[Rfam]
RNA sequence: GGCUGCAACAUCCCCGUGGAUUGGGUUUCGCCUUCGAUUGUUGGAUGAGCGCGGAACGACGAAUCCUCUGCAGCU
Numbered sequence: 001g002g003c004u005g006c007a008a009c010a011u012c013c014c015c016g017u018g019g020a021u022u023g024g025g026u027u028u029c030g031c032c033u034u035c036g037a038u039u040g041u042u043g044g045a046u047g048a049g050c051g052c053g054g055a056a057c058g059a060c061g062a063a064u065c066c067u068c069u070g071c072a073g074c075u
Stems, first nucleotide, its partner, number of pairs: 001075007013061001016068001018066005023060001025057007
The family of this 75-nucleotide RNA from Granulicella arctica is "nadA riboswitch". Lineage of the source: Bacteria > Pseudomonadati > Terriglobia > Acidobacteriaceae > Granulicella. It is annotated as a small RNA.